[Rfam]
Nucleotides: 077
Base pairs, nucleotide, nucleotide: 001077002076003075004074005073
Number, partner (000 for none) and nucleotide at each position: 001077g002076c003075u004074u005073g006000a007000a008000u009000g010000a011000u012000g013000a014000c015000u016000u017000g018000a019000u020000a021000a022000u023000c024000u025000u026000u027000u028000g029000u030000c031000g032000g033000a034000u035000a036000c037000c038000c039000c040000u041000u042000c043000a044000c045000u046000c047000u048000u049000c050000a051000a052000u053000g054000a055000g056000u057000g058000a059000a060000c061000u062000c063000u064000u065000c066000a067000u068000u069000c070000u071000g072000a073005c074004a075003a076002g077001c